[Rfam]
RNA sequence: UGACGGAAGGCUGCCUCAAGCUGUGGAGUCUGCGGCUUAAUUUGACUCAACGCGGGGAACCUCACCAGGGCCAGACACAGCAAGGAUUGACAGGUUAAGUGGGCCUUUCAUGAUUCUGUGGAUGGUGGUGCAUGGCCGCUGAAAGUGAGUGAUGUGAGUUGUCUGCUUUAUUGCGAUAACUAACGAGACCUCCGCUGUUAAAUAGUCAGCUUUAGAUUUUUUCUAGAGUAUGGCUUCUUAACGGGACUACUGUAGUGAUACAGGGGAAGCGGGAGGCUAUAGCAGGUCAGUGAUGCCCUUUUAUGUCUUUGGGCCGCACGCGGACUACACUGGCAACUUCAACGAGUCAACCUGUGCCGAGAGGUAUGGGUAACCUUGUGAAAAGUUGUCGUGACUGGGAUUGGCGAUUGCAAUUGUUCGCCAUGAACGAGGAAUAGUUAGUAAUCGUGUGUCAUAAACGCACGAUGACUAAGACCCCAGCCUUUGUACACA
Numbered sequence: 001u002g003a004c005g006g007a008a009g010g011c012u013g014c015c016u017c018a019a020g021c022u023g024u025g026g027a028g029u030c031u032g033c034g035g036c037u038u039a040a041u042u043u044g045a046c047u048c049a050a051c052g053c054g055g056g057g058a059a060c061c062u063c064a065c066c067a068g069g070g071c072c073a074g075a076c077a078c079a080g081c082a083a084g085g086a087u088u089g090a091c092a093g094g095u096u097a098a099g100u101g102g103g104c105c106u107u108u109c110a111u112g113a114u115u116c117u118g119u120g121g122a123u124g125g126u127g128g129u130g131c132a133u134g135g136c137c138g139c140u141g142a143a144a145g146u147g148a149g150u151g152a153u154g155u156g157a158g159u160u161g162u163c164u165g166c167u168u169u170a171u172u173g174c175g176a177u178a179a180c181u182a183a184c185g186a187g188a189c190c191u192c193c194g195c196u197g198u199u200a201a202a203u204a205g206u207c208a209g210c211u212u213u214a215g216a217u218u219u220u221u222u223c224u225a226g227a228g229u230a231u232g233g234c235u236u237c238u239u240a241a242c243g244g245g246a247c248u249a250c251u252g253u254a255g256u257g258a259u260a261c262a263g264g265g266g267a268a269g270c271g272g273g274a275g276g277c278u279a280u281a282g283c284a285g286g287u288c289a290g291u292g293a294u295g296c297c298c299u300u301u302u303a304u305g306u307c308u309u310u311g312g313g314c315c316g317c318a319c320g321c322g323g324a325c326u327a328c329a330c331u332g333g334c335a336a337c338u339u340c341a342a343c344g345a346g347u348c349a350a351c352c353u354g355u356g357c358c359g360a361g362a363g364g365u366a367u368g369g370g371u372a373a374c375c376u377u378g379u380g381a382a383a384a385g386u387u388g389u390c391g392u393g394a395c396u397g398g399g400a401u402u403g404g405c406g407a408u409u410g411c412a413a414u415u416g417u418u419c420g421c422c423a424u425g426a427a428c429g430a431g432g433a434a435u436a437g438u439u440a441g442u443a444a445u446c447g448u449g450u451g452u453c454a455u456a457a458a459c460g461c462a463c464g465a466u467g468a469c470u471a472a473g474a475c476c477c478c479a480g481c482c483u484u485u486g487u488a489c490a491c492a
Stems, first nucleotide, its partner, number of pairs: 001490002003487003007484007016474002020438005025328001027326008035317002041056004065312004069307003076120005089109002092106003124299002127297004133293001134291001135287003138283004145184002148181003151160003164175003190275004195244007204235004247266002250263005332390007344377003351370002355366004397428001402423006444466008
Eukaryotic small subunit ribosomal RNA: a 492-nucleotide part of an RNA from Kipferlia bialata. The family is grouped with related families in Rfam's "SSU clan". Taxonomically the source falls in Kipferlia (Eukaryota, Metamonada, Fornicata, Carpediemonas-like organisms). The base pairs follow the family's consensus structure, which is taken from published work. It scores 1514 bits against the family's covariance model. On this family, see Yusupov et al., Science 2001: "Crystal structure of the ribosome at 5.5 A resolution".